[Rfam]
The family of this 124-nucleotide RNA from Lentibacillus salicampi is "ylbH leader". The literature on the family includes a 2004 paper in Proc Natl Acad Sci U S A by Barrick et al., "New RNA motifs suggest an expanded scope for riboswitches in bacterial genetic control". The organism belongs to Lentibacillus, within Bacteria. The match comes from Rfam's covariance-model search (100 bits). Gene Ontology term of the family: regulation of gene expression. Rfam describes the family as follows. This family is a putative regulatory RNA structure that is found upstream of the ylbH gene in B. subtilis and related low GC Gram-positive bacteria.
RNA sequence: UAAAGAAAAAACCUGCAGAAAUAUUUCUGCAGGUCCCUUUGUUUUCUUGUCAGAAAACAAAAAGGCAAAGGGAGAGGAGAAACCGGAGGAAGAACUUAUGGGGAAGUGUAAGUCUUCUCCGAGU
Numbered sequence: 001u002a003a004a005g006a007a008a009a010a011a012c013c014u015g016c017a018g019a020a021a022u023a024u025u026u027c028u029g030c031a032g033g034u035c036c037c038u039u040u041g042u043u044u045u046c047u048u049g050u051c052a053g054a055a056a057a058c059a060a061a062a063a064g065g066c067a068a069a070g071g072g073a074g075a076g077g078a079g080a081a082a083c084c085g086g087a088g089g090a091a092g093a094a095c096u097u098a099u100g101g102g103g104a105a106g107u108g109u110a111a112g113u114c115u116u117c118u119c120c121g122a123g124u
Stems, first nucleotide, its partner, number of pairs: 011034009035072005041058006084121004089117004094113005